Rfam assigns this 539-nucleotide part of an RNA from Cecembia lonarensis to the family "Bacterial large subunit ribosomal RNA".
Pairs were carried over by alignment from the consensus structure, which is taken from published work.

RNA sequence: GAACAAGGGCGCACGGGGGAUGCCUGGGCUCCAUGAGGCGAAGAAGGACGUGCCAAGCUGCGAUAAGCUGUGGGGACCCGCAAGUGGGGCUGAUCCACAGAUUUCCGAAUGGGGCAACCCACCACGUAAGUGGUAUCCUGAAAAGGAGGCGAACCUGCCGAACUGAAACAUCUAAGUAGGCAGAGGAAGAGAAAACAAUAGUGAUUCCGUGAGUAGUGGCGAGCGAAAGCGGAUCAGCCCAAACCGCGCGUGUUACGGCACGUGCGGGGUUAUAGGACCUGCGUAAGACAUAUGAAUGUGACCUGAACGUACUGGGAAGUACGGCCGGAGAGGGUGAGGGCCCCGUAGGGGAAGCAUGAAUUUGUUGGCGGGUAUCCUGAGUAGGCCGGGACAGGAGAAAUCCCGGUUGAAUUUGCCGGCACCAUCCGGUAAGGCUAAAUACUACAUGGAGACCGAUAGUGGACAAGUACCGUGAGGGAAAGGUGAAAAGUACCGUGAAUAACGGGGUGAAAGAGAACCUGAAACCGUGCGCUUACAAG
Dot-bracket structure: ......((((((((((.....(((..(((((((((((((......((((((........))).....(((((((..(((......))).....)))))))...)))....(((....)))(((((....))))).((((....)))).))...((((((.....((....))......))))).).........((....))..((((((.....((.....))....)))))..((((....(((((((..........)))))))......(((.(((((.....(((.((..((((..(((...(((((......)))))..(...).(((.......)))...)))...))))..)).)))..)))))...))).....((((((((.........))))))))......(((((......)))))..))))..)..)).))))))).))...............((....))....)).........((((.....)))).............).....)))))))))).....